[Rfam]
RNA: MIR5565 microRNA precursor family
RNA sequence: GUAAUCGGAUUCACAUCAAUUCACAUGUGUUGGAGUGGAUUGAAGUGGAACUUGAACUAAAUUUCACCCUAAUCCACUAUAGCACAUGUGGAUUGAGGUGAAUCCGACA
Numbered sequence: 001g002u003a004a005u006c007g008g009a010u011u012c013a014c015a016u017c018a019a020u021u022c023a024c025a026u027g028u029g030u031u032g033g034a035g036u037g038g039a040u041u042g043a044a045g046u047g048g049a050a051c052u053u054g055a056a057c058u059a060a061a062u063u064u065c066a067c068c069c070u071a072a073u074c075c076a077c078u079a080u081a082g083c084a085c086a087u088g089u090g091g092a093u094u095g096a097g098g099u100g101a102a103u104c105c106g107a108c109a
Stems, first nucleotide, its partner, number of pairs: 005107010016096017035077008045067003